This 102-nucleotide sequence from Domibacillus mangrovi belongs to the Rfam family "Purine riboswitch aptamer". The family's consensus secondary structure is taken from published work. The match comes from Rfam's covariance-model search (45 bits). NCBI's taxonomy places the organism under Bacteria, Bacillati, Bacillota, Bacillaceae, Domibacillus.
RNA sequence: AUAUAUUUAGUUGCACAUGUAUCGUAUAUCGUCGAGAAGUGGCUUGACAGUUCUUACUGGGCUGCCUUAAAUGGUCGGACUACGUAUAAGUGGGCAUGUAUA
Numbered sequence: 001a002u003a004u005a006u007u008u009a010g011u012u013g014c015a016c017a018u019g020u021a022u023c024g025u026a027u028a029u030c031g032u033c034g035a036g037a038a039g040u041g042g043c044u045u046g047a048c049a050g051u052u053c054u055u056a057c058u059g060g061g062c063u064g065c066c067u068u069a070a071a072u073g074g075u076c077g078g079a080c081u082a083c084g085u086a087u088a089a090g091u092g093g094g095c096a097u098g099u100a101u102a
Stems, first nucleotide, its partner, number of pairs: 018088004023084004031048006058078001060076005